[Rfam]
RNA sequence: CUGACUUUCUGCCGCGAUUGUGGAGCUGCUGCGCCAUCCCGGCUGAACAGGCCUGAUUCGCAGUAGCUCC
Numbered sequence: 001c002u003g004a005c006u007u008u009c010u011g012c013c014g015c016g017a018u019u020g021u022g023g024a025g026c027u028g029c030u031g032c033g034c035c036a037u038c039c040c041g042g043c044u045g046a047a048c049a050g051g052c053c054u055g056a057u058u059c060g061c062a063g064u065a066g067c068u069c070c
Base pairs, nucleotide, nucleotide: 022070023069024068025067026066027065028064029063030062031061032060033059
Overview: A member of the RNA family "Mycobacterium sRNA Ms_IGR-8" from Mycolicibacterium phlei, 70 nucleotides long. NCBI's taxonomy places the organism under Bacteria, Actinomycetota, Mycobacteriaceae, Mycobacterium (subgen. Mycolicibacterium), Mycolicibacterium phlei. The literature on the family includes a 2013 paper in RNA by Li et al., "Identification of small RNAs in Mycobacterium smegmatis using heterologous Hfq". A search with the family's covariance model found it, with a score of 44 bits.